The record is a 267-nucleotide RNA sequence from Ochotona princeps, which matches "RNase MRP" in Rfam. The source organism's lineage runs through Eukaryota, Deuterostomia, Mammalia, Eutheria and Ochotona.
RNA sequence: GUUCGCGCUGAAGGCCUGUUUCCUAGGCUACAUACGGGGACUUGUUCCUCAUCUUCUCGCCUAGGGGAAAGUCCCCGGACCUCCGGCAGAGAGUGCCGCGUGCGCAUGCACGUAGACUCACCCCGCCCCCCACGGCUAGUCCGCCAAGAAGCUCCCUGCUGGACAGGGCGCCGAGCGUUGUGGUGCGGGGCGUCGUCCGUCACGGUCACAGUUACGCAGGCAGCGCGCCCCGCGCGCCAACCACACGGGGCUCAUUCUCAGCGCGGA
Number, nucleotide and partner (000 for none) at each position: 001g000002u267003u266004c265005g264006c263007g262008c261009u260010g259011a258012a000013g000014g221015c220016c219017u218018g217019u216020u000021u000022c065023c064024u063025a062026g061027g060028c059029u000030a000031c000032a000033u000034a000035c000036g050037g049038g048039g047040a046041c000042u000043u000044g000045u000046u040047c039048c038049u037050c036051a000052u000053c000054u000055u000056c000057u000058c000059g028060c027061c026062u025063a024064g023065g022066g000067g000068a000069a000070a252071g251072u000073c250074c249075c248076c247077g000078g000079a000080c000081c000082u000083c000084c000085g097086g096087c095088a094089g000090a000091g000092a000093g000094u088095g087096c086097c085098g113099c112100g111101u110102g109103c108104g000105c000106a000107u000108g103109c102110a101111c100112g099113u098114a000115g194116a193117c192118u000119c000120a000121c190122c189123c188124c187125g186126c185127c000128c000129c000130c183131c182132a181133c180134g000135g000136c000137u000138a000139g000140u000141c000142c177143g176144c175145c000146a000147a000148g000149a000150a000151g000152c000153u000154c000155c000156c000157u000158g000159c000160u000161g171162g000163a000164c168165a000166g000167g000168g164169c000170g000171c161172c000173g000174a000175g144176c143177g142178u000179u000180g133181u132182g131183g130184u000185g126186c125187g124188g123189g122190g121191c000192g117193u116194c115195g000196u000197c000198c000199g000200u000201c000202a000203c000204g000205g000206u000207c000208a000209c000210a000211g000212u000213u000214a000215c000216g019217c018218a017219g016220g015221c014222a000223g237224c236225g235226c234227g233228c232229c000230c000231c000232g228233c227234g226235c225236g224237c223238c000239a000240a000241c000242c000243a000244c000245a000246c000247g076248g075249g074250g073251c071252u070253c000254a000255u000256u000257c000258u011259c010260a009261g008262c007263g006264c005265g004266g003267a002
Source information: The sequence is in the family's curated seed alignment.